[Rfam]
RNA sequence: UAUUAUAAGUGAAUAUAGGCUCAUAUAUGCUCCAAAUUUGGUGGAGUGUCUCUACCCCUGACCUUAAUCAGGGACUAUGAGUCAGAAACGUGGACUU
Numbered sequence: 001u002a003u004u005a006u007a008a009g010u011g012a013a014u015a016u017a018g019g020c021u022c023a024u025a026u027a028u029g030c031u032c033c034a035a036a037u038u039u040g041g042u043g044g045a046g047u048g049u050c051u052c053u054a055c056c057c058c059u060g061a062c063c064u065u066a067a068u069c070a071g072g073g074a075c076u077a078u079g080a081g082u083c084a085g086a087a088a089c090g091u092g093g094a095c096u097u
Stems, first nucleotide, its partner, number of pairs: 018083008029047006056073006

Record summary
The family of this 97-nucleotide RNA from Peptostreptococcus anaerobius is "Purine riboswitch aptamer". Rfam's curators write: Riboswitches are metabolite binding domains within certain messenger RNAs that serve as precision sensors for their corresponding targets. For this family Rfam cites "Riboswitches Control Fundamental Biochemical Pathways in Bacillus subtilis and Other Bacteria" (Mandal et al., Cell, 2003).